[Rfam]
RNA sequence: UUUUAUAUAGGGCAAAAUCAUUGAAAAAUGAUGACGCAAAGCUAUAGGGACCUCUUUCCAUUGGAAAAAGUCUGCCAGCUACCAUC
Number, nucleotide and partner (000 for none) at each position: 001u000002u000003u000004u000005a000006u000007a000008u000009a000010g000011g000012g037013c036014a000015a000016a000017a032018u031019c030020a029021u028022u027023g000024a000025a000026a000027a022028a021029u020030g019031a018032u017033g000034a000035c000036g013037c012038a000039a000040a080041g079042c078043u077044a000045u000046a000047g076048g075049g072050a071051c070052c000053u000054c000055u000056u066057u065058c064059c063060a000061u000062u000063g059064g058065a057066a056067a000068a000069a000070g051071u050072c049073u000074g000075c048076c047077a043078g042079c041080u040081a000082c000083c000084a000085u000086c000
This 86-nucleotide RNA from Mesobacillus selenatarsenatis belongs to the Rfam family "c-di-GMP-I riboswitch aptamer". Pairs were carried over by alignment from the consensus structure, which is taken from published work. Its family is annotated with cyclic-di-GMP binding in the Gene Ontology. It scores 67 bits against the family's covariance model. Rfam's curators write: GEMM was predicted in a large-scale screen for bacterial structured RNA regulatory elements.